[Rfam]
The family of this 149-nucleotide RNA sequence from Psychrobacter arcticus is "Flavo-1 RNA". The match comes from Rfam's covariance-model search (45 bits). The family's consensus secondary structure is taken from published work. By type it is a small RNA.
RNA sequence: GUUUAGCCCCGAUUGUAGCGGUUAUUCUGCUCAAUUGGACAAGUUGCGAGGACCAGAUUUUGGCUUGGCUACGCGGAGCAAGAGACAGGACAAACCGUAGCCCUCGCCUCGUAUCAAUGAGCAGAUAUGAGCGAAAAGCGGGAUUGGCU
Numbered sequence: 001g002u003u004u005a006g007c008c009c010c011g012a013u014u015g016u017a018g019c020g021g022u023u024a025u026u027c028u029g030c031u032c033a034a035u036u037g038g039a040c041a042a043g044u045u046g047c048g049a050g051g052a053c054c055a056g057a058u059u060u061u062g063g064c065u066u067g068g069c070u071a072c073g074c075g076g077a078g079c080a081a082g083a084g085a086c087a088g089g090a091c092a093a094a095c096c097g098u099a100g101c102c103c104u105c106g107c108c109u110c111g112u113a114u115c116a117a118u119g120a121g122c123a124g125a126u127a128u129g130a131g132c133g134a135a136a137a138g139c140g141g142g143a144u145u146g147g148c149u
Stems, first nucleotide, its partner, number of pairs: 009141003013137002018132002023127004029122005035117003